The record is a 103-nucleotide RNA sequence from Ramlibacter sp. WS9, which matches "Glycine riboswitch aptamer" in Rfam. From the family's description: This family represents the bacterial glycine riboswitch.
RNA sequence: CGCUUCCUUGCUGGAGAGAGGCUUCAGGCAGUUUGAAGCCCACCGAAGGAGCAAACCCGCGUAACGGGUGAAUCUCUCAGGUAAAGCGGACAGCAGGGGCCGC
Numbered sequence: 001c002g003c004u005u006c007c008u009u010g011c012u013g014g015a016g017a018g019a020g021g022c023u024u025c026a027g028g029c030a031g032u033u034u035g036a037a038g039c040c041c042a043c044c045g046a047a048g049g050a051g052c053a054a055a056c057c058c059g060c061g062u063a064a065c066g067g068g069u070g071a072a073u074c075u076c077u078c079a080g081g082u083a084a085a086g087c088g089g090a091c092a093g094c095a096g097g098g099g100c101c102g103c
Base pairs, nucleotide, nucleotide: 006098007097008096009095010094011093012092013091020040021039022038023037024036025035026034027033042082043081044080045078046077049076050075051074055069056068057067058066